[Rfam]
RNA sequence: ACCUCAUCCAGAGGGGCUGAGGGAUACGGCCCGAAGACGCCCCGGCAACCACCCCGUGUGACUCGACGACGAGGCCACUCACGGGACAGGUGCCAAUUCCGUCCCCGCCGCACGGUGCGGCGCUGGGAAAGAUGAGAG
Number, nucleotide and partner (000 for none) at each position: 001a000002c000003c136004u135005c134006a133007u132008c131009c000010a000011g000012a000013g043014g042015g041016g040017c039018u000019g000020a000021g032022g031023g030024a000025u000026a102027c101028g100029g099030c023031c022032c021033g000034a000035a000036g000037a000038c000039g017040c016041c015042c014043c013044g094045g093046c092047a091048a000049c090050c089051a000052c085053c084054c083055c000056g000057u000058g000059u000060g000061a000062c000063u000064c000065g000066a000067c000068g000069a000070c000071g000072a000073g000074g000075c000076c000077a000078c000079u000080c000081a000082c000083g054084g053085g052086a000087c000088a000089g050090g049091u047092g046093c045094c044095a000096a000097u000098u130099c029100c028101g027102u026103c127104c126105c125106c000107g123108c122109c000110g000111c000112a000113c000114g000115g000116u000117g000118c000119g000120g000121c000122g108123c107124u000125g105126g104127g103128a000129a000130a098131g008132a007133u006134g005135a004136g003137a000138g000
A member of the RNA family "SAM riboswitch aptamer (S box leader)" from Phytohabitans suffuscus, 138 nucleotides long. The match comes from Rfam's covariance-model search (71 bits). Rfam links the family to the GO term regulation of gene expression. The organism belongs to Phytohabitans, within Bacteria. Rfam's curators write: The SAM riboswitch is found upstream of a number of genes which code for proteins involved in methionine or cysteine biosynthesis in Gram-positive bacteria.